RNA sequence: GAAUCAAAAACAUUAAAAAUCGGAAACAAUGCCACAGUUAACUACCUAGCUUAGACGGUGGUGAAUUGCCAGUGUUUCAUAUUGUUGAAAUACCAGUUUCCAAGAAAAAAUAAUUGACAGGAUAGGAAGUCCGUUGUCUGUGUUGUCCACUUAAUGAGGGCUAUAGACUUGGGAUGUCGAAAGAUAGUCAACAUUU
Numbered sequence: 001g002a003a004u005c006a007a008a009a010a011c012a013u014u015a016a017a018a019a020u021c022g023g024a025a026a027c028a029a030u031g032c033c034a035c036a037g038u039u040a041a042c043u044a045c046c047u048a049g050c051u052u053a054g055a056c057g058g059u060g061g062u063g064a065a066u067u068g069c070c071a072g073u074g075u076u077u078c079a080u081a082u083u084g085u086u087g088a089a090a091u092a093c094c095a096g097u098u099u100c101c102a103a104g105a106a107a108a109a110a111u112a113a114u115u116g117a118c119a120g121g122a123u124a125g126g127a128a129g130u131c132c133g134u135u136g137u138c139u140g141u142g143u144u145g146u147c148c149a150c151u152u153a154a155u156g157a158g159g160g161c162u163a164u165a166g167a168c169u170u171g172g173g174a175u176g177u178c179g180a181a182a183g184a185u186a187g188u189c190a191a192c193a194u195u196u
Stems, first nucleotide, its partner, number of pairs: 022078004036067004041062004046058002049056001109188001111186002114184002129175004136168004142164002145161004